[Rfam]
RNA sequence: CCACUAUAGUCCUCCAUUGAGGUUACUUGUGGCUCUGUCUCUGUGUGUGUAUGUGUGUAAUUCCCUUCCACGGUGUUGAAGAGUAAGCCUGUCCCUGGUUUUAGAGUCAAUAAGGGCAGCAAUCUUUAUAUUCCUAUAACUUCUCCGUCUCUAGACAGUUACUGAGAAGGAACCAUGCAGGAUGAAGCU
Dot-bracket structure: .((.(((((.(..(((.((((....)))))))....).))..(((.(.....(.(......).)...)))).))).))............................................(((.(((..........((((((.(((....))).......)))))).....))).)))........
Numbered sequence: 001c002c003a004c005u006a007u008a009g010u011c012c013u014c015c016a017u018u019g020a021g022g023u024u025a026c027u028u029g030u031g032g033c034u035c036u037g038u039c040u041c042u043g044u045g046u047g048u049g050u051a052u053g054u055g056u057g058u059a060a061u062u063c064c065c066u067u068c069c070a071c072g073g074u075g076u077u078g079a080a081g082a083g084u085a086a087g088c089c090u091g092u093c094c095c096u097g098g099u100u101u102u103a104g105a106g107u108c109a110a111u112a113a114g115g116g117c118a119g120c121a122a123u124c125u126u127u128a129u130a131u132u133c134c135u136a137u138a139a140c141u142u143c144u145c146c147g148u149c150u151c152u153a154g155a156c157a158g159u160u161a162c163u164g165a166g167a168a169g170g171a172a173c174c175a176u177g178c179a180g181g182a183u184g185a186a187g188c189u
Stems, first nucleotide, its partner, number of pairs: 002078002005075003008040002011037001014032003018029004043071003047068001053064001055062001123181003127177003140169006147156003